[Rfam]
A member of the RNA family "mir-2060 microRNA precursor family" from Branchiostoma lanceolatum, 94 nucleotides long. Rfam links the family to the GO terms RISC complex and miRNA-mediated post-transcriptional gene silencing. The match comes from Rfam's covariance-model search (71 bits). The family's consensus secondary structure was predicted with RNAalifold.
RNA sequence: GAUUACAUAUGUGUGGGUGUUGUUCAGCACCAAGGACAGGCAUGUUCCCCUCUGUGUUGUUGGUGUUCAGCACCAGGGACAGGUAUGUUCCCCU
Numbered sequence: 001g002a003u004u005a006c007a008u009a010u011g012u013g014u015g016g017g018u019g020u021u022g023u024u025c026a027g028c029a030c031c032a033a034g035g036a037c038a039g040g041c042a043u044g045u046u047c048c049c050c051u052c053u054g055u056g057u058u059g060u061u062g063g064u065g066u067u068c069a070g071c072a073c074c075a076g077g078g079a080c081a082g083g084u085a086u087g088u089u090c091c092c093c094u
Stems, first nucleotide, its partner, number of pairs: 004085003008081001010079001018075002021072004026067007034055001036053001038051003